[Rfam]
Nucleotides: 175
Base pairs, nucleotide, nucleotide: 001175002174003173004172005171006170007169009167010166011165012164013163014162015161018158019157021155022154023153024152025151026150027149028148030146032144033143035141036140037139038138039137041135042134043133045131046130047129048128051126054123055122057120058119063114064113065112070107071106072105073104075101076100077099078098079097085096086095
Number, partner (000 for none) and nucleotide at each position: 001175a002174a003173c004172u005171a006170c007169a008000c009167u010166a011165u012164c013163g014162a015161u016000u017000u018158a019157u020000a021155g022154a023153u024152u025151c026150a027149c028148u029000c030146g031000c032144g033143a034000g035141a036140u037139g038138a039137u040000a041135u042134g043133g044000c045131u046130a047129u048128u049000u050000c051126a052000c053000c054123u055122a056000g057120g058119a059000c060000g061000a062000g063114g064113a065112c066000a067000u068000g069000a070107c071106a072105u073104c074000c075101u076100a077099u078098u079097a080000u081000a082000g083000c084000c085096a086095u087000c088000g089000c090000a091000c092000g093000a094000a095086a096085u097079u098078a099077a100076u101075a102000a103000u104073g105072a106071u107070g108000a109000c110000a111000c112065g113064u114063c115000c116000u117000c118000a119058u120057c121000c122055u123054a124000g125000a126051u127000g128048a129047a130046u131045a132000a133043c134042c135041a136000c137039g138038u139037c140036a141035u142000c143033u144032c145000a146030c147000g148028g149027g150026u151025g152024a153023a154022u155021c156000c157019a158018u159000u160000c161015a162014u163013c164012g165011a166010u167009a168000g169007u170006g171005u172004g173003g174002u175001u